Bacterial small subunit ribosomal RNA: a 583-nucleotide part of an RNA from Acetivibrio saccincola. Rfam 15.1 lists 42,628 matches to the family in 10,626 species.
[Rfam]
RNA sequence: UGACGGGGGCCCGCACAAGCAGUGGAGUAUGUGGUUUAAUUCGAAGCAACGCGAAGAACCUUACCAGGGCUUGACAUCCCUUGACCGCUGUAGAAAUACAGUUUCCCUUCGGGGCAAGGAGACAGGUGGUGCAUGGUUGUCGUCAGCUCGUGUCGUGAGAUGUUGGGUUAAGUCCCGCAACGAGCGCAACCCCUGUCGUUAGUUGCCAGCACGUAGAGGUGGGCACUCUAGCGAGACUGCCGGUGACAAAUCGGAGGAAGGUGGGGACGACGUCAAAUCAUCAUGCCCCUUAUGUCCUGGGCUACACACGUACUACAAUGGUUGCUACAGAGGGCAGCGAAGCCGCGAGGUGGAGCAAAUCCCUAAAAGCAGCCCCAGUUCGGAUUGCAGGCUGAAACUCGCCUGCAUGAAGUCGGAAUUGCUAGUAAUGGCAGGUCAGCAUACUGCCGUGAAUACGUUCCCGGGCCUUGUACACACCGCCCGUCACACCAUGAGAGUCGGCAACACCCGAAGUCAGUAGUCUAACCGCAAGGGGGACGCUGCCGAAGGUGGGGCUGAUGAUUGGGGUGAAGUCGUAACAAGG
Numbered sequence: 001u002g003a004c005g006g007g008g009g010c011c012c013g014c015a016c017a018a019g020c021a022g023u024g025g026a027g028u029a030u031g032u033g034g035u036u037u038a039a040u041u042c043g044a045a046g047c048a049a050c051g052c053g054a055a056g057a058a059c060c061u062u063a064c065c066a067g068g069g070c071u072u073g074a075c076a077u078c079c080c081u082u083g084a085c086c087g088c089u090g091u092a093g094a095a096a097u098a099c100a101g102u103u104u105c106c107c108u109u110c111g112g113g114g115c116a117a118g119g120a121g122a123c124a125g126g127u128g129g130u131g132c133a134u135g136g137u138u139g140u141c142g143u144c145a146g147c148u149c150g151u152g153u154c155g156u157g158a159g160a161u162g163u164u165g166g167g168u169u170a171a172g173u174c175c176c177g178c179a180a181c182g183a184g185c186g187c188a189a190c191c192c193c194u195g196u197c198g199u200u201a202g203u204u205g206c207c208a209g210c211a212c213g214u215a216g217a218g219g220u221g222g223g224c225a226c227u228c229u230a231g232c233g234a235g236a237c238u239g240c241c242g243g244u245g246a247c248a249a250a251u252c253g254g255a256g257g258a259a260g261g262u263g264g265g266g267a268c269g270a271c272g273u274c275a276a277a278u279c280a281u282c283a284u285g286c287c288c289c290u291u292a293u294g295u296c297c298u299g300g301g302c303u304a305c306a307c308a309c310g311u312a313c314u315a316c317a318a319u320g321g322u323u324g325c326u327a328c329a330g331a332g333g334g335c336a337g338c339g340a341a342g343c344c345g346c347g348a349g350g351u352g353g354a355g356c357a358a359a360u361c362c363c364u365a366a367a368a369g370c371a372g373c374c375c376c377a378g379u380u381c382g383g384a385u386u387g388c389a390g391g392c393u394g395a396a397a398c399u400c401g402c403c404u405g406c407a408u409g410a411a412g413u414c415g416g417a418a419u420u421g422c423u424a425g426u427a428a429u430g431g432c433a434g435g436u437c438a439g440c441a442u443a444c445u446g447c448c449g450u451g452a453a454u455a456c457g458u459u460c461c462c463g464g465g466c467c468u469u470g471u472a473c474a475c476a477c478c479g480c481c482c483g484u485c486a487c488a489c490c491a492u493g494a495g496a497g498u499c500g501g502c503a504a505c506a507c508c509c510g511a512a513g514u515c516a517g518u519a520g521u522c523u524a525a526c527c528g529c530a531a532g533g534g535g536g537a538c539g540c541u542g543c544c545g546a547a548g549g550u551g552g553g554g555c556u557g558a559u560g561a562u563u564g565g566g567g568u569g570a571a572g573u574c575g576u577a578a579c580a581a582g583g
Stems, first nucleotide, its partner, number of pairs: 001474002003471003007468007015458002019422005024316001026314008034305002040055004064300007077122002079119005087102006105114003125289002128287004134283002136278003139274001141272002146185006152161003164177004191266004196234007206223002210221003237257002240254005320374007332363003337356002342351003381412001386407007428450007477582001479579001482575002487569004492564003497559006505551004513544001515542004520538004526533002